A member of the RNA family "Histone 3' UTR stem-loop" from Callorhinus ursinus, 46 nucleotides long. Rfam describes the family as follows. The mRNAs of metazoan histone genes lack a poly-A tail. 3' end processing occurs at a site between a highly conserved stem-loop (modelled by this family) and a purine rich region around 20 nts downstream (the histone downstream element, or HDE). The stem-loop is bound by a 31 kDa stem-loop binding protein (SLBP - also termed the histone hairpin binding protein, or HBP). Together with U7 snRNA binding of the HDE, SLBP binding nucleate s the formation of the processing complex. The histone 3' UTR stem-loop is also involved in nucleocytoplasmic transport of the mRNA, and in stability regulation and translation efficiency in the cytoplasm. For this family Rfam cites "NMR structure and dynamics of the RNA-binding site for the histone mRNA stem-loop binding protein" (DeJong et al., RNA, 2002).
[Rfam]
RNA sequence: CCAAAGGCUCUUUUCAGGGCCACUUAUAUUUUCUGGAAAAGAACUU
Numbered sequence: 001c002c003a004a005a006g007g008c009u010c011u012u013u014u015c016a017g018g019g020c021c022a023c024u025u026a027u028a029u030u031u032u033c034u035g036g037a038a039a040a041g042a043a044c045u046u
Base pairs, nucleotide, nucleotide: 006021007020008019009018010017011016